The family of this 76-nucleotide RNA from Oncorhynchus kisutch is "mir-30 microRNA precursor family".
The source organism's lineage runs through Eukaryota, Eumetazoa, Euteleosteomorpha, Salmoniformes and Oncorhynchus.
A reference for the family is Lagos-Quintana et al. (2001), "Identification of novel genes coding for small expressed RNAs", Science.
The base pairs follow the family's consensus structure, which was predicted with PFOLD.
Rfam 15.1 lists 3,879 matches to the family in 647 species.
This family consists of the mammalian microRNA (miRNA) precursor mir-30a. Animal miRNAs are transcribed as ~70nt precursors and subsequently processed by the Dicer enzyme to give a ~22nt product. In this case the mature sequence comes from both the 3' (miR-30) and 5' (mir-97-6) arms of the precursor. The extents of the hairpin precursors are not generally known and are estimated based on hairpin prediction. The products are thought to have regulatory roles through complementarity to mRNA. The involvement of Dicer in miRNA processing suggests a relationship with the phenomenon of RNA interference. miRNAs are numbered based on the sequence of the mature RNA.
[Rfam]
RNA sequence: UGGGCUACUGUAAACAUCCUUGACUGAAAGCUGGUGUUUCAUAUAGGGCUUUCAGUCGGAUGUUUGCAGCAGCCAA
Numbered sequence: 001u002g003g004g005c006u007a008c009u010g011u012a013a014a015c016a017u018c019c020u021u022g023a024c025u026g027a028a029a030g031c032u033g034g035u036g037u038u039u040c041a042u043a044u045a046g047g048g049c050u051u052u053c054a055g056u057c058g059g060a061u062g063u064u065u066g067c068a069g070c071a072g073c074c075a076a
Base pairs, nucleotide, nucleotide: 003074004073005072006071008069009068010067011066012065013064014063015062016061017060018059019058023056024055025054026053027052028051029050030049031048032047